A member of the RNA family "c-di-AMP riboswitch aptamer (ydaO/yuaA leader)" from Paenibacillus selenitireducens, 136 nucleotides long.
[Rfam]
RNA sequence: GCUUAAUACAUGCUAAAUUUUCGAAUAGAAAUACGGGGGAACCACCUAUUGGGGCGAAUCGCAGCGCAUGGCUGCGUAGGAAACCAUCUUUACCGAGUCCGUCAGCUAACCUCGUCAGCAUGAGAUGGGUCGUCAU
Numbered sequence: 001g002c003u004u005a006a007u008a009c010a011u012g013c014u015a016a017a018u019u020u021u022c023g024a025a026u027a028g029a030a031a032u033a034c035g036g037g038g039g040a041a042c043c044a045c046c047u048a049u050u051g052g053g054g055c056g057a058a059u060c061g062c063a064g065c066g067c068a069u070g071g072c073u074g075c076g077u078a079g080g081a082a083a084c085c086a087u088c089u090u091u092a093c094c095g096a097g098u099c100c101g102u103c104a105g106c107u108a109a110c111c112u113c114g115u116c117a118g119c120a121u122g123a124g125a126u127g128g129g130u131c132g133u134c135a136u
Stems, first nucleotide, its partner, number of pairs: 011120004019031004033115006043051002052100003060076004079094002082091001
The match comes from Rfam's covariance-model search (81 bits). Rfam links the family to the GO terms cyclic-di-AMP binding and regulation of gene expression.